[Rfam]
RNA sequence: AAUAGUUCUAUUCUAAAUACUCAUAUAAUAGCGAGAAUAAGGCUCGCAAGUUUCUACCAACUUUCCGUAAAAUAGUUGACUAUGAGUAGCUUUGUUAGCGCA
Numbered sequence: 001a002a003u004a005g006u007u008c009u010a011u012u013c014u015a016a017a018u019a020c021u022c023a024u025a026u027a028a029u030a031g032c033g034a035g036a037a038u039a040a041g042g043c044u045c046g047c048a049a050g051u052u053u054c055u056a057c058c059a060a061c062u063u064u065c066c067g068u069a070a071a072a073u074a075g076u077u078g079a080c081u082a083u084g085a086g087u088a089g090c091u092u093u094g095u096u097a098g099c100g101c102a
Base pairs, nucleotide, nucleotide: 018088019087020086021085022084023083024082025081029049031047032046033045034044035043058078059077060076061075062074064072

This 102-nucleotide RNA sequence from Lysinibacillus alkalisoli belongs to the Rfam family "Purine riboswitch aptamer". Riboswitches are metabolite binding domains within certain messenger RNAs that serve as precision sensors for their corresponding targets. Clan: Purine riboswitches. NCBI's taxonomy places the organism under Bacteria, Bacillati, Bacilli, Bacillaceae, Lysinibacillus.